This 112-nucleotide sequence from Arabidopsis lyrata belongs to the Rfam family "MIR397 microRNA precursor family". The base pairs follow the family's consensus structure, which was predicted with WAR. A search with the family's covariance model found it, with a score of 66 bits.
RNA sequence: UAGAAAAACAUAAUUGAAUGCAACGCUGAUGUAUUCUGUAUCAUUUUAAUUCAUUCAACAAUGGAAUAAAAUAAGUAAACUUACAUCAACGCUGCACUCAAUGAUGUUUAUU
Numbered sequence: 001u002a003g004a005a006a007a008a009c010a011u012a013a014u015u016g017a018a019u020g021c022a023a024c025g026c027u028g029a030u031g032u033a034u035u036c037u038g039u040a041u042c043a044u045u046u047u048a049a050u051u052c053a054u055u056c057a058a059c060a061a062u063g064g065a066a067u068a069a070a071a072u073a074a075g076u077a078a079a080c081u082u083a084c085a086u087c088a089a090c091g092c093u094g095c096a097c098u099c100a101a102u103g104a105u106g107u108u109u110a111u112u
Base pairs, nucleotide, nucleotide: 006109007108008107009106010105011104013102014101015100016099017098019096020095021094022093024091025090027088028087030085031084032083